[Rfam]
RNA sequence: AAAUUAUCUUAAACAGUGUUUUAAAUAAUCA
Numbered sequence: 001a002a003a004u005u006a007u008c009u010u011a012a013a014c015a016g017u018g019u020u021u022u023a024a025a026u027a028a029u030c031a
Base pairs, nucleotide, nucleotide: 003029004028005027006026007025009024010023011022012021013020014018